[Rfam]
RNA sequence: UUUUGAUUGCGGGGGGACACAAUUGUGUUGAGAAGGUUAAAACCUGACCCUUUGAACCUGUUAGUUAAUACUGACGUAGGGAGCAAUAGUGUUUUAUGC
Numbered sequence: 001u002u003u004u005g006a007u008u009g010c011g012g013g014g015g016g017a018c019a020c021a022a023u024u025g026u027g028u029u030g031a032g033a034a035g036g037u038u039a040a041a042a043c044c045u046g047a048c049c050c051u052u053u054g055a056a057c058c059u060g061u062u063a064g065u066u067a068a069u070a071c072u073g074a075c076g077u078a079g080g081g082a083g084c085a086a087u088a089g090u091g092u093u094u095u096a097u098g099c
Base pairs, nucleotide, nucleotide: 006087007086008085009084010083011051012050013049014048016045017028018027019026020025035044036043037042057080058079059078060077061074062073063072064071
About this RNA
The family of this 99-nucleotide RNA sequence from Desemzia incerta is "TPP riboswitch aptamer (THI element)". The family's consensus secondary structure is taken from published work. Rfam's curators write: Vitamin B(1) in its active form thiamin pyrophosphate (TPP) is an essential coenzyme that is synthesised by coupling of pyrimidine and thiazole moieties in bacteria. The previously detected thiamin-regulatory element, thi box was extended, resulting in a new, highly conserved RNA secondary structure, the THI element, which is widely distributed in eubacteria and also occurs in some archaea. Analysis of operon structures identified a large number of new candidate thiamin-regulated genes, mostly transporters, in various prokaryotic organisms. The THI element is a riboswitch that directly binds to TPP to regulate gene expression through a variety of mechanisms in archaea, bacteria and eukaryotes. through a variety of mechanisms in archaea, bacteria and eukaryotes. Tandem TPP riboswitches have been reported where both TPP riboswitches respond independently to TPP. The structure of TPP riboswitch has been reported for Escherichia coli and Arabidopsis thaliana. The source organism's lineage runs through Bacteria, Bacillati, Bacilli, Lactobacillales and Desemzia.